The record is a 56-nucleotide RNA sequence from Oncorhynchus mykiss, which matches "U7 small nuclear RNA" in Rfam.

[Rfam]
RNA sequence: GAAAAUUUGCUAUUUUAGUAUUUGUCAAGUAGGCGUCUUCAAUUGAAGAAGCCCCC
Numbered sequence: 001g002a003a004a005a006u007u008u009g010c011u012a013u014u015u016u017a018g019u020a021u022u023u024g025u026c027a028a029g030u031a032g033g034c035g036u037c038u039u040c041a042a043u044u045g046a047a048g049a050a051g052c053c054c055c056c
Stems, first nucleotide, its partner, number of pairs: 032053003036049005
NCBI's taxonomy places the organism under Eukaryota, Craniata, Euteleosteomorpha, Salmoninae, Oncorhynchus. Animal histone pre-mRNAs are spliced by a different mechanism than nuclear pre-mRNAs and self-splicing introns. This processing involves the U7 snRNP, which contains only one RNA species: U7. The 5' end of U7 RNA is thought to base-pair to a conserved spacer element downstream of the cleavage site in histone pre-mRNA. This family contains a number of annotated U7 pseudogenes.